This 66-nucleotide RNA from Halopseudomonas salegens belongs to the Rfam family "Pseudomonas sRNA P26".
A search with the family's covariance model found it, with a score of 53 bits.
The organism belongs to Halopseudomonas, within Bacteria.
This small RNA (sRNA) was computationally identified in the genome of the opportunistic pathogen Pseudomonas aeruginosa and its expression verified by northern blot analysis.
Nucleotides: 066
Base pairs, nucleotide, nucleotide: 014037015036016035017034018033022029023028040065041064042063043062044061045060046059047058048057049056
Number, partner (000 for none) and nucleotide at each position: 001000g002000a003000c004000c005000u006000u007000g008000c009000g010000u011000u012000g013000a014037c015036a016035a017034u018033c019000u020000g021000c022029g023028c024000c025000c026000a027000g028023g029022c030000u031000c032000a033018g034017a035016u036015u037014g038000g039000u040065g041064g042063c043062u044061g045060g046059u047058g048057g049056c050000c051000g052000u053000u054000g055000c056049g057048c058047c059046a060045c061044c062043g063042g064041c065040c066000u